[Rfam]
RNA sequence: CUAAAUAAAGGGCAAAGCCAUUGAAAGAUGGUGACGCAAAGCUAAAGGGUCUUAAACGUUUCGGACGAAAGACAGCCAGUUGCUGGU
Numbered sequence: 001c002u003a004a005a006u007a008a009a010g011g012g013c014a015a016a017g018c019c020a021u022u023g024a025a026a027g028a029u030g031g032u033g034a035c036g037c038a039a040a041g042c043u044a045a046a047g048g049g050u051c052u053u054a055a056a057c058g059u060u061u062c063g064g065a066c067g068a069a070a071g072a073c074a075g076c077c078a079g080u081u082g083c084u085g086g087u
Base pairs, nucleotide, nucleotide: 012037013036017032018031019030020029021028022027040081041080042079043078047077048076049073050072051071059064
Dot-bracket structure: ...........((...((((((....))))))...))..((((...(((((.......(....)......)))..))))))......
A member of the RNA family "c-di-GMP-I riboswitch aptamer" from Butyrivibrio sp. YAB3001, 87 nucleotides long. The family's consensus secondary structure is taken from published work. Rfam's curators write: GEMM was predicted in a large-scale screen for bacterial structured RNA regulatory elements.